[Rfam]
RNA sequence: AAGACUAUACUUUCAGGGAUCAUUUCUUUAGUUGUUGACUUGAGAAAUGUGUUUCUAAAGAGUUUGGUCUCGCUGCCCACGAUGAAGAGUGAAGAUGUUUCCUUCAGAGCAGGAAUCUGGUGGAAAGACUCUGUUUCUUCUCCACUGUUGAUGAUUGUUCAGUGUUUCUGACUGAGACACUGAUGGAGGAAACAUGUUCUGAGUGGU
Numbered sequence: 001a002a003g004a005c006u007a008u009a010c011u012u013u014c015a016g017g018g019a020u021c022a023u024u025u026c027u028u029u030a031g032u033u034g035u036u037g038a039c040u041u042g043a044g045a046a047a048u049g050u051g052u053u054u055c056u057a058a059a060g061a062g063u064u065u066g067g068u069c070u071c072g073c074u075g076c077c078c079a080c081g082a083u084g085a086a087g088a089g090u091g092a093a094g095a096u097g098u099u100u101c102c103u104u105c106a107g108a109g110c111a112g113g114a115a116u117c118u119g120g121u122g123g124a125a126a127g128a129c130u131c132u133g134u135u136u137c138u139u140c141u142c143c144a145c146u147g148u149u150g151a152u153g154a155u156u157g158u159u160c161a162g163u164g165u166u167u168c169u170g171a172c173u174g175a176g177a178c179a180c181u182g183a184u185g186g187a188g189g190a191a192a193c194a195u196g197u198u199c200u201g202a203g204u205g206g207u
Stems, first nucleotide, its partner, number of pairs: 001041003005037001009032003015027004049065001051063001053062002077206004095195012109158003119146004127136001161181008
About this RNA:
The record is a 207-nucleotide sequence from Scophthalmus maximus, which matches "Small nucleolar RNA U3" in Rfam. For this family Rfam cites "The uRNA database" (Zwieb, Nucleic Acids Res, 1997). Clan: U3 clan. The family's RNA type in Rfam is C/D-box small nucleolar RNA. Rfam describes the family as follows. Small nucleolar RNAs (snoRNAs) are involved in the processing and modification of rRNA in the nucleolus.